RNA sequence: AAGCCUGGGGAGAGAGAAGCAGAUUCUGAUCCAUAGCCUCCAUGGUAGCUGUUGAUCAGCACUUGCCUCUCUCUUUCGUUCCA
Numbered sequence: 001a002a003g004c005c006u007g008g009g010g011a012g013a014g015a016g017a018a019g020c021a022g023a024u025u026c027u028g029a030u031c032c033a034u035a036g037c038c039u040c041c042a043u044g045g046u047a048g049c050u051g052u053u054g055a056u057c058a059g060c061a062c063u064u065g066c067c068u069c070u071c072u073c074u075u076u077c078g079u080u081c082c083a
Base pairs, nucleotide, nucleotide: 010075011074012073013072014071015070016069017068019066020065021064022063024061026059027058028057029056030055031054034051035050036049037048
Dot-bracket structure: .........((((((((.((((.(.((((((..((((..........))))..)))))).).)))).))))))))........
mir-574 microRNA precursor family: an 83-nucleotide RNA from Pipistrellus kuhlii.
Its family is annotated with miRNA-mediated post-transcriptional gene silencing and RISC complex in the Gene Ontology.
The source organism's lineage runs through Eukaryota, Opisthokonta, Mammalia, Eutheria and Pipistrellus.